Overview
L4-Archaeoglobi ribosomal protein leades: a 94-nucleotide sequence.

[Rfam]
RNA sequence: CUGAUGGUGGCGCAAGGGUGGAACUCGGAGUCGAGUGCCCGGUGCCCCUCCUCACCAAGAAAACGGUGAGACGAGGGCAGCGCCUGAACGUCAG
Numbered sequence: 001c002u003g004a005u006g007g008u009g010g011c012g013c014a015a016g017g018g019u020g021g022a023a024c025u026c027g028g029a030g031u032c033g034a035g036u037g038c039c040c041g042g043u044g045c046c047c048c049u050c051c052u053c054a055c056c057a058a059g060a061a062a063a064c065g066g067u068g069a070g071a072c073g074a075g076g077g078c079a080g081c082g083c084c085u086g087a088a089c090g091u092c093a094g
Base pairs, nucleotide, nucleotide: 001094002093003092004091005090009084010083011082012081013080016040017039018038023036024035025034026033027032043079044078045077046076047075051070052069053068054067055066056065
Dot-bracket structure: (((((...(((((..(((....(((((....))))).)))..(((((...((((((........))))))....)))))))))).....)))))
A reference for the family is Eckert and Weinberg (2020), "Discovery of 20 novel ribosomal leader candidates in bacteria and archaea", BMC Microbiol.